[Rfam]
RNA: c-di-AMP riboswitch aptamer (ydaO/yuaA leader)
RNA sequence: AUUUGAUAUCGGCCAAAUCUCAAUUUUGAGAACGGAGGACCCAAUUUUUGGGGUUAAUUCUGCAUGCAGAAGGGAUGAGUUACUCUUUCGCCAUCCUACCCGUCAGCUAACUUCGUCGGCUAAAGCGAAGGAGGUC
Numbered sequence: 001a002u003u004u005g006a007u008a009u010c011g012g013c014c015a016a017a018u019c020u021c022a023a024u025u026u027u028g029a030g031a032a033c034g035g036a037g038g039a040c041c042c043a044a045u046u047u048u049u050g051g052g053g054u055u056a057a058u059u060c061u062g063c064a065u066g067c068a069g070a071a072g073g074g075a076u077g078a079g080u081u082a083c084u085c086u087u088u089c090g091c092c093a094u095c096c097u098a099c100c101c102g103u104c105a106g107c108u109a110a111c112u113u114c115g116u117c118g119g120c121u122a123a124a125g126c127g128a129a130g131g132a133g134g135u136c
Stems, first nucleotide, its partner, number of pairs: 011121004018031003032116006042050002051101003059070004073096004